[Rfam]
RNA sequence: UGCAAGGGCACUCUGUGUUAUUCAUUCUCAAUAUGAUACUCACAAUUUGUUACCUUGCUAUAAUAAAUCUGCUAAACCCUAUUCGACAUAGCUCCUAUAAUGGUUAUGUGGUCAUAUUAGUAGACACAUUAU
Number, nucleotide and partner (000 for none) at each position: 001u000002g058003c057004a056005a055006g054007g053008g000009c000010a050011c049012u000013c000014u044015g043016u042017g040018u000019u038020a037021u036022u000023c035024a034025u000026u000027c000028u000029c000030a000031a000032u000033a000034u024035g023036a021037u020038a019039c000040u017041c000042a016043c015044a014045a000046u000047u000048u000049g011050u010051u000052a000053c007054c006055u005056u004057g003058c002059u000060a000061u000062a000063a000064u131065a130066a129067a000068u000069c123070u000071g121072c120073u119074a000075a118076a117077c000078c000079c000080u000081a000082u000083u000084c111085g000086a109087c108088a107089u106090a105091g104092c103093u102094c000095c000096u000097a000098u000099a000100a000101u000102g093103g092104u091105u090106a089107u088108g087109u086110g000111g084112u000113c000114a000115u000116a000117u076118u075119a073120g072121u071122a000123g069124a000125c000126a000127c000128a000129u066130u065131a064132u000
Rfam assigns this 132-nucleotide RNA sequence from Diatraea saccharalis to the family "Small nucleolar RNA psi18S-841/snoR66". Its Rfam clan is "SNORA28 clan". From the family's description: psi18S-841 is a member of the H/ACA class of snoRNA. This family is responsible for guiding the modification of uridine 841 in Drosophila 18S rRNA to pseudouridine. The source organism's lineage runs through Eukaryota, Eumetazoa, Protostomia, Crambinae and Diatraea. The family has 24 seed sequences and 108 matches in Rfam 15.1.